This 111-nucleotide sequence from Rhodospirillum rubrum belongs to the Rfam family "Manganese Mn2+ riboswitch aptamer (yybP-ykoY)". The organism belongs to Rhodospirillum rubrum, within Bacteria.

[Rfam]
RNA sequence: CACCCGACCUUUGGGGAGUAGCCGCCCUUCCGGCUUGCGGAAGGGACCUCGCGUCAACAUGCUCCGGCCCGUUCGCCGGUGGUGCGGGGAGCGCCGGAUUUUCCGGCAGCC
Numbered sequence: 001c002a003c004c005c006g007a008c009c010u011u012u013g014g015g016g017a018g019u020a021g022c023c024g025c026c027c028u029u030c031c032g033g034c035u036u037g038c039g040g041a042a043g044g045g046a047c048c049u050c051g052c053g054u055c056a057a058c059a060u061g062c063u064c065c066g067g068c069c070c071g072u073u074c075g076c077c078g079g080u081g082g083u084g085c086g087g088g089g090a091g092c093g094c095c096g097g098a099u100u101u102u103c104c105g106g107c108a109g110c111c
Stems, first nucleotide, its partner, number of pairs: 025045006047089010064079005

This RNA was originally discovered in E. coli during a large scale screen and was named SraF. The family was later found to exist upstream of related families of protein genes in many bacteria, including the the yybP and ykoK genes in B. subtilis. The specific functions of these proteins are unknown, but this structured RNA element may be involved in their genetic regulation as a riboswitch.